[Rfam]
The family of this 165-nucleotide RNA sequence from Leptotrombidium deliense is "U1 spliceosomal RNA". The match comes from Rfam's covariance-model search (134 bits). The base pairs follow the family's consensus structure, which is taken from published work. From the family's description: U1 is a small nuclear RNA (snRNA) component of the spliceosome (involved in pre-mRNA splicing). By type it is a spliceosomal small nuclear RNA. Rfam links the family to the GO terms U1 snRNP, mRNA 5'-splice site recognition and pre-mRNA 5'-splice site binding. The family has 100 seed sequences and 40,184 matches in Rfam 15.1.
RNA sequence: AUACUUACCUGGCUCCGAGAUCCCCGUGAUCAAGAAGGCGGGGGCUCCGGGUUGAGGCCCUUCCAUUGCACUCCGGGAGGAGCUGAAGCCCGCCACUAUUCCAAACUGGAAUAGAUGGGGAGUGAAAUUUUUGGUAGCGGGGGGCUGCGUUCGCGCCGCUCCCCA
Number, nucleotide and partner (000 for none) at each position: 001a000002u000003a000004c000005u000006u000007a000008c000009c000010u000011g000012g123013c122014u121015c120016c000017g047018a046019g045020a000021u043022c000023c042024c041025c040026g039027u038028g000029a000030u000031c000032a000033a000034g000035a000036a000037g000038g027039c026040g025041g024042g023043g021044g000045c019046u018047c017048c000049g091050g090051g089052u088053u000054g000055a000056g084057g083058c082059c000060c080061u079062u078063c076064c075065a000066u000067u000068g000069c000070a000071c000072u000073c000074c000075g064076g063077g000078a062079g061080g060081a000082g058083c057084u056085g000086a000087a000088g052089c051090c050091c049092g000093c118094c117095a116096c114097u113098a112099u000100u110101c109102c000103a000104a000105a000106c000107u000108g000109g101110a100111a000112u098113a097114g096115a000116u095117g094118g093119g000120g015121a014122g013123u012124g000125a000126a000127a000128u000129u000130u000131u000132u000133g000134g000135u000136a000137g000138c000139g164140g163141g162142g161143g160144g159145c000146u000147g156148c155149g154150u000151u000152c000153g000154c149155g148156c147157c000158g000159c144160u143161c142162c141163c140164c139165a000